[Rfam]
RNA: mir-8364 microRNA precursor family
RNA sequence: UCUCCAUUCAUCACACCAUCUCACCGAUCAGAGAGGCGAGAGAGUGUGGGAAAUGAAGAGA
Numbered sequence: 001u002c003u004c005c006a007u008u009c010a011u012c013a014c015a016c017c018a019u020c021u022c023a024c025c026g027a028u029c030a031g032a033g034a035g036g037c038g039a040g041a042g043a044g045u046g047u048g049g050g051a052a053a054u055g056a057a058g059a060g061a
Stems, first nucleotide, its partner, number of pairs: 001059003005055003012048005019041004